[Rfam]
RNA sequence: GUUCUGAAAAUGAGAGUUGGAAGGAAUUGAACUUUAAUUACUGUCCCAAAUAAUUGGUGAAUUAAAUGAGUUCAGUUUUCUCCAACAUCUCAUAUUCAGUUU
Numbered sequence: 001g002u003u004c005u006g007a008a009a010a011u012g013a014g015a016g017u018u019g020g021a022a023g024g025a026a027u028u029g030a031a032c033u034u035u036a037a038u039u040a041c042u043g044u045c046c047c048a049a050a051u052a053a054u055u056g057g058u059g060a061a062u063u064a065a066a067u068g069a070g071u072u073c074a075g076u077u078u079u080c081u082c083c084a085a086c087a088u089c090u091c092a093u094a095u096u097c098a099g100u101u102u
Stems, first nucleotide, its partner, number of pairs: 004099005011092004016086006023079008032070002
RNA: MIR2275 microRNA precursor family